[Rfam]
Nucleotides: 323
Stems, first nucleotide, its partner, number of pairs: 001101001003097005009091001012090001016088002022085010033072002036067002040065004045059002112168001113164003117134004122130002135157001142153003199269002204264002208260002212256001219252001221250001225244005297320004301314005
Number, partner (000 for none) and nucleotide at each position: 001101a002000u003097g004096u005095g006094a007093g008000g009091g010000c011000g012090a013000u014000c015000u016088g017087g018000c019000u020000g021000c022085g023084a024083c025082a026081u027080c028079u029078g030077u031076c032000a033072c034071c035000c036067c037066a038000u039000u040065g041064a042063u043062c044000a045059c046058u047000a048000g049000g050000g051000u052000u053000g054000a055000u056000u057000c058046g059045g060000c061000u062043g063042a064041u065040c066037u067036g068000a069000c070000u071034g072033g073000c074000u075000a076031g077030g078029c079028g080027g081026g082025u083024g084023u085022c086000c087017c088016c089000u090012u091009c092000a093007c094006u095005c096004a097003c098000c099000a100000c101001u102000c103000c104000a105000u106000g107000u108000g109000c110000a111000u112168c113164c114163c115162u116000c117134c118133c119132a120131a121000a122130g123129c124000u125000g126000c127000a128000c129123g130122c131120u132119u133118g134117g135157u136000a137000g138000a139000a140000g141000a142153g143152g144151a145000c146000g147000a148000c149000c150000a151144u152143c153142c154000c155000a156000g157135a158000u159000a160000a161000a162115a163114g164113g165000a166000g167000u168112g169000u170000a171000c172000c173000g174000a175000u176000c177000u178000u179000u180000g181000g182000u183000c184000a185000a186000g187000g188000g189000u190000a191000u192000a193000u194000a195000a196000u197000a198000g199269c200268u201000g202000c203000a204264c205263u206000c207000c208260c209259c210000u211000g212256c213000u214000a215000g216000a217000a218000c219252c220000u221250c222000c223000a224000a225244a226243c227242a228241g229240g230000c231000u232000a233000a234000a235000g236000u237000a238000u239000u240229c241228c242227u243226g244225u245000u246000u247000u248000a249000a250221g251000u252219g253000g254000g255000u256212g257000a258000u259209g260208g261000a262000g263205g264204g265000a266000c267000a268200a269199g270000a271000a272000a273000a274000a275000a276000a277000a278000a279000u280000u281000g282000a283000c284000u285000u286000g287000a288000c289000u290000g291000c292000a293000u294000a295000u296000c297320a298319a299318a300317u301314c302313u303312g304311a305310u306000u307000u308000u309000g310305a311304u312303c313302a314301g315000a316000u317300a318299u319298u320297u321000a322000u323000g

Shown here is a 323-nucleotide sequence from Laticauda laticaudata, a member of the family "7SK RNA". Rfam classes the family as a non-coding RNA gene. Its Rfam clan is "7SK clan". Rfam describes the family as follows. 7SK was discovered as an abundant small nuclear RNA in the mid-70s but a possible function has only recently been suggested. Two independent studies have found that 7SK RNA binds the CDK9/cyclin T complex (known as elongation factor P-TEFb). P-TEFb activates transcription by phosphorylating the C-terminal domain of RNA polymerase II. This process is negatively regulated by the 7SK RNP. The secondary structure of 7SK RNA shown here was proposed by Wasserman and Steitz on the basis of chemical modification and enzymatic cleavage experiments. A reference for the family is Blencowe (2002), "Transcription: surprising role for an elusive small nuclear RNA", Curr Biol. The source organism's lineage runs through Eukaryota, Deuterostomia, Teleostomi, Toxicofera and Laticauda.